About this RNA:
Shown here is a 78-nucleotide RNA from Novosphingobium sp. FSW06-99, a member of the family "Fluoride riboswitch aptamer (crcB RNA motif)". Its family is annotated with response to fluoride and positive regulation of gene expression in the Gene Ontology.
RNA sequence: GGCGCGCCCGGCGAUGGAUUUCCGCCGGGCGCUAUGCCGAACCACCCGUUUUUUCGGGUUGAUGAUUCCUACCUUUGG
Numbered sequence: 001g002g003c004g005c006g007c008c009c010g011g012c013g014a015u016g017g018a019u020u021u022c023c024g025c026c027g028g029g030c031g032c033u034a035u036g037c038c039g040a041a042c043c044a045c046c047c048g049u050u051u052u053u054u055c056g057g058g059u060u061g062a063u064g065a066u067u068c069c070u071a072c073c074u075u076u077g078g
Stems, first nucleotide, its partner, number of pairs: 010026004016069003020065002044059004